[Rfam]
RNA sequence: GUCGAACGUCGUGACUGGCGUGCAGAUGGGACACCAUCGGGAAACGACACCCCCUCUCGGAACGGCCGCUCGCCUGGGUCGAAAAA
Numbered sequence: 001g002u003c004g005a006a007c008g009u010c011g012u013g014a015c016u017g018g019c020g021u022g023c024a025g026a027u028g029g030g031a032c033a034c035c036a037u038c039g040g041g042a043a044a045c046g047a048c049a050c051c052c053c054c055u056c057u058c059g060g061a062a063c064g065g066c067c068g069c070u071c072g073c074c075u076g077g078g079u080c081g082a083a084a085a086a
Base pairs, nucleotide, nucleotide: 004052008048009047010046011045012044015041016040017074018073019072020071026037027036028035029034063081064080065079066078067077